Overview: A member of the RNA family "mir-315 microRNA precursor family" from Ladona fulva, 81 nucleotides long. A reference for the family is Stark et al. (2007), "Systematic discovery and characterization of fly microRNAs using 12 Drosophila genomes", Genome Res.
[Rfam]
RNA sequence: CACCUUUAUGUUUUUGAUUGUUGCUCAGAAAGCAGUGAAUUUGACGUUGGCUUUCGAGCAAUAAUCACAAUCGAAAAGGCU
Numbered sequence: 001c002a003c004c005u006u007u008a009u010g011u012u013u014u015u016g017a018u019u020g021u022u023g024c025u026c027a028g029a030a031a032g033c034a035g036u037g038a039a040u041u042u043g044a045c046g047u048u049g050g051c052u053u054u055c056g057a058g059c060a061a062u063a064a065u066c067a068c069a070a071u072c073g074a075a076a077a078g079g080c081u
Stems, first nucleotide, its partner, number of pairs: 003079005012070002015067004020062007028055006

Description: Taxonomically the source falls in Ladona (Eukaryota, Bilateria, Hexapoda, Pterygota).